ZMP/ZTP riboswitch aptamer (pfl RNA motif): an 84-nucleotide RNA sequence from Qiania dongpingensis.
Pairs were carried over by alignment from the consensus structure, which is taken from published work.
RNA sequence: CGAAGUUCCGAUUACUGACGGAUAAUUGUGGAGUACCACAGUGGAAUCGGAGCCAUAUAAGAGCCGACCGUCUGGGCAACAUUU
Numbered sequence: 001c002g003a004a005g006u007u008c009c010g011a012u013u014a015c016u017g018a019c020g021g022a023u024a025a026u027u028g029u030g031g032a033g034u035a036c037c038a039c040a041g042u043g044g045a046a047u048c049g050g051a052g053c054c055a056u057a058u059a060a061g062a063g064c065c066g067a068c069c070g071u072c073u074g075g076g077c078a079a080c081a082u083u084u
Base pairs, nucleotide, nucleotide: 005053006052007051008050009049010048011047012046015043017072018071019070020069021068028039029038030037031036063077064076065075